[Rfam]
Shown here is a 74-nucleotide RNA sequence from Pseudocercospora fijiensis, a member of the family "tRNA". A search with the family's covariance model found it, with a score of 63 bits. Gene Ontology term of the family: triplet codon-amino acid adaptor activity.

RNA sequence: GCUGCCCUGGUGUAGUUGGUUAUCACGUCAGUCUAACACACUGAAGGUCGCCGGUUCAAGUCCGGCGGGCAGUA
Numbered sequence: 001g002c003u004g005c006c007c008u009g010g011u012g013u014a015g016u017u018g019g020u021u022a023u024c025a026c027g028u029c030a031g032u033c034u035a036a037c038a039c040a041c042u043g044a045a046g047g048u049c050g051c052c053g054g055u056u057c058a059a060g061u062c063c064g065g066c067g068g069g070c071a072g073u074a
Stems, first nucleotide, its partner, number of pairs: 001073007010026003028044005050066005